RNA sequence: UUAAACGCAAUGAAGGGAAUAAAGACAGUGAUUGCCCCCUCAGAGAGCCGGUGGUUGGUGCGAACCGGUGUGCGGCGCCGCUGUGUAUGACUGGUCCCCGAGCGGUCCUUCCGAAGCUGGAUCAGUAGGAUGGAACGACUGGCCCCGUUACCGGCCGCGGCCUUGUUGGAGGCUUAGAGGGCCGUUCGGGCGACCGGCGGCUGAACCAGGGUGGUACCGCGUGAAUGGUUUUUAUCACGCCCCUGAC
Numbered sequence: 001u002u003a004a005a006c007g008c009a010a011u012g013a014a015g016g017g018a019a020u021a022a023a024g025a026c027a028g029u030g031a032u033u034g035c036c037c038c039c040u041c042a043g044a045g046a047g048c049c050g051g052u053g054g055u056u057g058g059u060g061c062g063a064a065c066c067g068g069u070g071u072g073c074g075g076c077g078c079c080g081c082u083g084u085g086u087a088u089g090a091c092u093g094g095u096c097c098c099c100g101a102g103c104g105g106u107c108c109u110u111c112c113g114a115a116g117c118u119g120g121a122u123c124a125g126u127a128g129g130a131u132g133g134a135a136c137g138a139c140u141g142g143c144c145c146c147g148u149u150a151c152c153g154g155c156c157g158c159g160g161c162c163u164u165g166u167u168g169g170a171g172g173c174u175u176a177g178a179g180g181g182c183c184g185u186u187c188g189g190g191c192g193a194c195c196g197g198c199g200g201c202u203g204a205a206c207c208a209g210g211g212u213g214g215u216a217c218c219g220c221g222u223g224a225a226u227g228g229u230u231u232u233u234a235u236c237a238c239g240c241c242c243c244u245g246a247c
Base pairs, nucleotide, nucleotide: 007103008102015098016097017096018095025084026083027082028081029080030079036072038070047069048068049067050066051065052064106134107133108132110130111129112128136147137146180202181201182200183199184198185197186196208244209243210242211241219240220239221238222237223236
The record is a 247-nucleotide RNA sequence from Pseudoflavonifractor sp. AF19-9AC, which matches "T-box leader" in Rfam. The base pairs follow the family's consensus structure, which is taken from published work. Rfam 15.1 lists 19,395 matches to the family in 1,923 species.